[Rfam]
RNA sequence: ACAACCUCAAGCUCGCGCACGGCAACAUCGUGGUGUUCCGCUCGCUGCUGGGUAUCAGCUGGAUGUGGUUUUUCGGCGCGGUGUUUCUGGGCCAGUUCCCCAGCUUUGCCAAGGAAGUGCUG
Dot-bracket structure: .........(((.((.((..((((.(.....).))))..)).))..))).(((((...((.((...((..((....((.((....))))....))..)).....)....).))...))))).